[Rfam]
RNA sequence: UCCAUCCUUCGCUCAGUAGUCAGUGUAGAUCCUGUCGGCCGUCAGCAGCUACAUCUGGCUACUGGGUCUCCGAUGGCUGUC
Numbered sequence: 001u002c003c004a005u006c007c008u009u010c011g012c013u014c015a016g017u018a019g020u021c022a023g024u025g026u027a028g029a030u031c032c033u034g035u036c037g038g039c040c041g042u043c044a045g046c047a048g049c050u051a052c053a054u055c056u057g058g059c060u061a062c063u064g065g066g067u068c069u070c071c072g073a074u075g076g077c078u079g080u081c
Stems, first nucleotide, its partner, number of pairs: 013065006020058003023054006032048004

A member of the RNA family "mir-221 microRNA precursor family" from Labeo rohita, 81 nucleotides long. It scores 72 bits against the family's covariance model. The family has 72 seed sequences and 1,797 matches in Rfam 15.1. Lineage of the source: Eukaryota > Otophysi > Cypriniformes > Labeonini > Labeo. A reference for the family is Yao et al. (2008), "MicroRNA profile of Marek's disease virus-transformed T-cell line MSB-1: predominance of virus-encoded microRNAs", J Virol.